[Rfam]
RNA sequence: AAGAGUAGCAGCAAAGUCAGGUGAGAAUCCUGACCGCCGAAGGGGCUAGGUUUCCUCGGCAAUGAUUGUCAGCCGAGGGUUAGUCGGUCCUAAGGUGCACCGUAAUUCGAGUGCAUCGAAAGGGAAACAGGUUAAUAUUCCUGUACCACUCGAUGGAUCCGCUGACGCCUCAGGGCAGGCCGAGCAGUGUUGUCGCACUGUCCAAGCGUUGAAGCACCCGGAGAGCCGUAAUGGCGAGAAGGGAGUGAAGGCGUGAUGGCGUAAGUCGGCUGCACCCAGGGGCCCGUGAAAAGGUUAGUCGAGUGACCGUACCAAGAACUGACACAGGUGCCCCUGGCUGAAAAGGCCAAGGCGUGU
Numbered sequence: 001a002a003g004a005g006u007a008g009c010a011g012c013a014a015a016g017u018c019a020g021g022u023g024a025g026a027a028u029c030c031u032g033a034c035c036g037c038c039g040a041a042g043g044g045g046c047u048a049g050g051u052u053u054c055c056u057c058g059g060c061a062a063u064g065a066u067u068g069u070c071a072g073c074c075g076a077g078g079g080u081u082a083g084u085c086g087g088u089c090c091u092a093a094g095g096u097g098c099a100c101c102g103u104a105a106u107u108c109g110a111g112u113g114c115a116u117c118g119a120a121a122g123g124g125a126a127a128c129a130g131g132u133u134a135a136u137a138u139u140c141c142u143g144u145a146c147c148a149c150u151c152g153a154u155g156g157a158u159c160c161g162c163u164g165a166c167g168c169c170u171c172a173g174g175g176c177a178g179g180c181c182g183a184g185c186a187g188u189g190u191u192g193u194c195g196c197a198c199u200g201u202c203c204a205a206g207c208g209u210u211g212a213a214g215c216a217c218c219c220g221g222a223g224a225g226c227c228g229u230a231a232u233g234g235c236g237a238g239a240a241g242g243g244a245g246u247g248a249a250g251g252c253g254u255g256a257u258g259g260c261g262u263a264a265g266u267c268g269g270c271u272g273c274a275c276c277c278a279g280g281g282g283c284c285c286g287u288g289a290a291a292a293g294g295u296u297a298g299u300c301g302a303g304u305g306a307c308c309g310u311a312c313c314a315a316g317a318a319c320u321g322a323c324a325c326a327g328g329u330g331c332c333c334c335u336g337g338c339u340g341a342a343a344a345g346g347c348c349a350a351g352g353c354g355u356g357u
Base pairs, nucleotide, nucleotide: 016034017033018032019031020030021029035354036353037352038351043333044332045331046330049313050312054078055077056076057075058074059073063071064070085309086308087307089123090122094117095116096115097114098113099112101109102108127144128143129142130141131140147305148304149303150302151301152300153299154298161295162294163293167283168282169281170280171279173277174276175275178271179270180269181268182267184201185200186199187198188197206254207253208252209251215245217243218242219241225235226234227233260265319328320327335349336348337347338346

Annotation: This 357-nucleotide part of an RNA from Methanohalobium evestigatum belongs to the Rfam family "Archaeal large subunit ribosomal RNA". Rfam's curators put it in the seed alignment. Lineage of the source: Archaea > Methanobacteriota > Methanomicrobia > Methanohalobium > Methanohalobium evestigatum.